Record summary
Small nucleolar RNA snoR2/U65: a 147-nucleotide sequence from Hibiscus syriacus. NCBI's taxonomy places the organism under Eukaryota, Euphyllophyta, Spermatophyta, Pentapetalae, Hibiscus. By type it is an H/ACA-box small nucleolar RNA. The family's consensus secondary structure was predicted with WAR. Gene Ontology terms of the family: nucleolus and RNA processing.

[Rfam]
RNA sequence: GGUCCGAUGCCGCGUCGAUUGUAGCCAAAGAGCAUUGACCGGCGAUGCUAUGAUCGGACCGAAGUGAAUAUCAUGUUUCGCUUGCUGAUAGGAACCUGUGGAUCUGUAUAAUUGUGAUCUACGGUGCCGUUUUGGGCGAUUACAGCU
Numbered sequence: 001g002g003u004c005c006g007a008u009g010c011c012g013c014g015u016c017g018a019u020u021g022u023a024g025c026c027a028a029a030g031a032g033c034a035u036u037g038a039c040c041g042g043c044g045a046u047g048c049u050a051u052g053a054u055c056g057g058a059c060c061g062a063a064g065u066g067a068a069u070a071u072c073a074u075g076u077u078u079c080g081c082u083u084g085c086u087g088a089u090a091g092g093a094a095c096c097u098g099u100g101g102a103u104c105u106g107u108a109u110a111a112u113u114g115u116g117a118u119c120u121a122c123g124g125u126g127c128c129g130u131u132u133u134g135g136g137c138g139a140u141u142a143c144a145g146c147u
Stems, first nucleotide, its partner, number of pairs: 002059007009051001013047005021039002024033002078139005091128002096124003100120005